RNA: Flavo-1 RNA
RNA sequence: UCAUGUUAGGGAUUGUAAUGGCAUCCUUUUUAUGCUUAAAAAUUAACGAAAUUAUUUUUGAUAGCUUACAACUAUGUGCUCUUAAAUAGUGAACUUUAAAUUAACAACGCAUAAAAAGAUAUAAUGGAAAGCCCGACCGCGC
Dot-bracket structure: ........(((.((...((...(((...(((((((.........................................................................)))))))..)))...))...)).)))........
Numbered sequence: 001u002c003a004u005g006u007u008a009g010g011g012a013u014u015g016u017a018a019u020g021g022c023a024u025c026c027u028u029u030u031u032a033u034g035c036u037u038a039a040a041a042a043u044u045a046a047c048g049a050a051a052u053u054a055u056u057u058u059u060g061a062u063a064g065c066u067u068a069c070a071a072c073u074a075u076g077u078g079c080u081c082u083u084a085a086a087u088a089g090u091g092a093a094c095u096u097u098a099a100a101u102u103a104a105c106a107a108c109g110c111a112u113a114a115a116a117a118g119a120u121a122u123a124a125u126g127g128a129a130a131g132c133c134c135g136a137c138c139g140c141g142c
Stems, first nucleotide, its partner, number of pairs: 009134003013130002018125002023120003029115007